Shown here is a 130-nucleotide sequence from Camellia sinensis, a member of the family "MIR168 microRNA precursor family". Rfam 15.1 lists 518 matches to the family in 218 species.
RNA sequence: GUUGCAGCGGACUCUAAUUCACUUGGUGCAGGUCGGGAACUACUUCGCCGGCGGCGGCGAUUGAUUCUGAUUGAUUCGAGGGAGAAUCGGGUCCCGCCUUGCAUCAACUGAAUUGGAGACCACCGUGAAC
Numbered sequence: 001g002u003u004g005c006a007g008c009g010g011a012c013u014c015u016a017a018u019u020c021a022c023u024u025g026g027u028g029c030a031g032g033u034c035g036g037g038a039a040c041u042a043c044u045u046c047g048c049c050g051g052c053g054g055c056g057g058c059g060a061u062u063g064a065u066u067c068u069g070a071u072u073g074a075u076u077c078g079a080g081g082g083a084g085a086a087u088c089g090g091g092u093c094c095c096g097c098c099u100u101g102c103a104u105c106a107a108c109u110g111a112a113u114u115g116g117a118g119a120c121c122a123c124c125g126u127g128a129a130c
Base pairs, nucleotide, nucleotide: 013117014116017113018112019111020110023107024106025105026104027103028102029101030100031099032098034096035095036094037093038092040090041089